[Rfam]
RNA sequence: AAAAUUCUUCGGGGUCGGGUGCAAGUCCCAACCGGCGGUAGAGUCCGCGACCCGCAUUUUGCGGCUGAUCCGGUGAGAUUCCGGAACCGACAGUAUAGUCUGGAUGAGAGAAGAGUUGU
Dot-bracket structure: ..((((((((......(((.......))).[[((((((....[[))))...((.........))....(((((.......)))))]])).(((....]]))).......))))))))..